[Rfam]
RNA sequence: GGUUGUUUUUGGGUGAUGCAUCCUGGAAUUGGGCUCCAUCCUCUCUGGUUCUGGGUGUCACCAGAGAACCGCA
Numbered sequence: 001g002g003u004u005g006u007u008u009u010u011g012g013g014u015g016a017u018g019c020a021u022c023c024u025g026g027a028a029u030u031g032g033g034c035u036c037c038a039u040c041c042u043c044u045c046u047g048g049u050u051c052u053g054g055g056u057g058u059c060a061c062c063a064g065a066g067a068a069c070c071g072c073a
Stems, first nucleotide, its partner, number of pairs: 002072002005069006012062006020056004025052009
Background:
mir-9223 microRNA precursor family: a 73-nucleotide RNA sequence from Myotis myotis. Rfam links the family to the GO terms RISC complex and miRNA-mediated post-transcriptional gene silencing.